[Rfam]
RNA sequence: AAGAAAGAAAGGGAGCUCCCUUCAGUCCAAAUACAGGAAGCUUAAGACUCAAUUUGUCUCCCGCAUCAUUCACUCAUUUGCAGAGUAUACUUGAGUAUAUUUUACUCAGCAUUUGGAUGAAUGAGUCAGCAGCUAAUUAAAUCUUACAGCAACCCAUGAGUGGACUAAAGAAAGCUCUCUCUCAUUUACCA
Numbered sequence: 001a002a003g004a005a006a007g008a009a010a011g012g013g014a015g016c017u018c019c020c021u022u023c024a025g026u027c028c029a030a031a032u033a034c035a036g037g038a039a040g041c042u043u044a045a046g047a048c049u050c051a052a053u054u055u056g057u058c059u060c061c062c063g064c065a066u067c068a069u070u071c072a073c074u075c076a077u078u079u080g081c082a083g084a085g086u087a088u089a090c091u092u093g094a095g096u097a098u099a100u101u102u103u104a105c106u107c108a109g110c111a112u113u114u115g116g117a118u119g120a121a122u123g124a125g126u127c128a129g130c131a132g133c134u135a136a137u138u139a140a141a142u143c144u145u146a147c148a149g150c151a152a153c154c155c156a157u158g159a160g161u162g163g164a165c166u167a168a169a170g171a172a173a174g175c176u177c178u179c180u181c182u183c184a185u186u187u188a189c190c191a
Base pairs, nucleotide, nucleotide: 013177014176015175016174017173020170024166025165026164027163028162029161036154058132059131061129063127067123068122069121070120075115